The family of this 89-nucleotide RNA from Medicago truncatula is "MIR2617 microRNA precursor family".
RNA sequence: UGGGAGUGUGACAUGCCCGUUUGGGAUUCACUCUGAUGUUGAAAUAUUAUUUAUUAAAUUACUUUUGGGUAACGGGGUGUUACACAACC
Numbered sequence: 001u002g003g004g005a006g007u008g009u010g011a012c013a014u015g016c017c018c019g020u021u022u023g024g025g026a027u028u029c030a031c032u033c034u035g036a037u038g039u040u041g042a043a044a045u046a047u048u049a050u051u052u053a054u055u056a057a058a059u060u061a062c063u064u065u066u067g068g069g070u071a072a073c074g075g076g077g078u079g080u081u082a083c084a085c086a087a088c089c
Stems, first nucleotide, its partner, number of pairs: 002089002006085009016076006
Rfam links the family to the GO terms miRNA-mediated post-transcriptional gene silencing and RISC complex. Pairs were carried over by alignment from the consensus structure, which was predicted with RNAalifold. It scores 70 bits against the family's covariance model.